[Rfam]
RNA: FMN riboswitch aptamer (RFN element)
RNA sequence: UUGUGUCUUCAGGGCAGGGUGUGAUUCCCUACCGGUGGUAUAGCCCACGAGCGCCAAGGCGCAGAUUCGGUGAAAUUCCGAGGCCGACAGUUAUAGUCUGGAUGAAAGAAGAUGACA
Numbered sequence: 001u002u003g004u005g006u007c008u009u010c011a012g013g014g015c016a017g018g019g020u021g022u023g024a025u026u027c028c029c030u031a032c033c034g035g036u037g038g039u040a041u042a043g044c045c046c047a048c049g050a051g052c053g054c055c056a057a058g059g060c061g062c063a064g065a066u067u068c069g070g071u072g073a074a075a076u077u078c079c080g081a082g083g084c085c086g087a088c089a090g091u092u093a094u095a096g097u098c099u100g101g102a103u104g105a106a107a108g109a110a111g112a113u114g115a116c117a
Stems, first nucleotide, its partner, number of pairs: 004114007017029003031097002033086002035048004043084002051062003066082005088100003